[Rfam]
RNA sequence: CUGACCAGGACGCAUGGGUCGACGUUCGUGCAACGAGCCCGUUCCUUCUGCUGCAUCAGUGUAGCAGGGAUGCGCCAUUGUCAG
Numbered sequence: 001c002u003g004a005c006c007a008g009g010a011c012g013c014a015u016g017g018g019u020c021g022a023c024g025u026u027c028g029u030g031c032a033a034c035g036a037g038c039c040c041g042u043u044c045c046u047u048c049u050g051c052u053g054c055a056u057c058a059g060u061g062u063a064g065c066a067g068g069g070a071u072g073c074g075c076c077a078u079u080g081u082c083a084g
Stems, first nucleotide, its partner, number of pairs: 001084005009076001011074003015041004023035004043070005050065006